[Rfam]
Histidine operon leader: a 122-nucleotide RNA sequence from Sodalis-like symbiont of Philaenus spumarius.
Nucleotides: 122
Stems, first nucleotide, its partner, number of pairs: 008043003011039004017034005044067008084119006091112009
Number, partner (000 for none) and nucleotide at each position: 001000c002000a003000a004000c005000c006000a007000u008043u009042a010041c011039c012038a013037u014036c015000a016000u017034c018033c019032u020031g021030a022000c023000u024000a025000g026000u027000c028000u029000u030021u031020c032019a033018g034017g035000c036014g037013a038012u039011g040000a041010g042009u043008g044067c045066u046065a047064g048063a049062a050061g051060a052000c053000g054000c055000u056000u057000u058000a059000a060051u061050c062049u063048u064047c065046u066045a067044g068000c069000g070000g071000c072000a073000c074000a075000g076000a077000a078000u079000g080000u081000c082000a083000g084119a085118g086117a087116g088115a089114g090000c091112c092111c093110u094109c095108g096107g097106a098105a099104g100000a101000u102000u103000u104099c105098u106097u107096c108095c109094g110093a111092g112091g113000u114089u115088u116087u117086u118085u119084u120000u121000g122000g
A reference for the family is Kolter and Yanofsky (1982), "Attenuation in amino acid biosynthetic operons", Annu Rev Genet. Its family is annotated with histidine biosynthetic process in the Gene Ontology. The match comes from Rfam's covariance-model search (94 bits). At least 6 amino acid operons are known to be regulated by attenuation. In each a leader sequence of 150-200 bp is found upstream of the first gene in the operon. This leader sequence can assume two different secondary structures known as the terminator and the anti-terminator structure. In each case the leader also codes for very short peptide sequence that is rich in the end product amino acid of the operon. The base pairs follow the family's consensus structure, which is taken from published work.